[Rfam]
RNA sequence: ACCACUGAGCCAUCUCUCCAGCCCUGAGACUAUUUUUAUUCUUAAGAAAUACAUCAUGGGGCUGGAGAGAUGGCUUAGCGGU
Numbered sequence: 001a002c003c004a005c006u007g008a009g010c011c012a013u014c015u016c017u018c019c020a021g022c023c024c025u026g027a028g029a030c031u032a033u034u035u036u037u038a039u040u041c042u043u044a045a046g047a048a049a050u051a052c053a054u055c056a057u058g059g060g061g062c063u064g065g066a067g068a069g070a071u072g073g074c075u076u077a078g079c080g081g082u
Stems, first nucleotide, its partner, number of pairs: 002081002005078022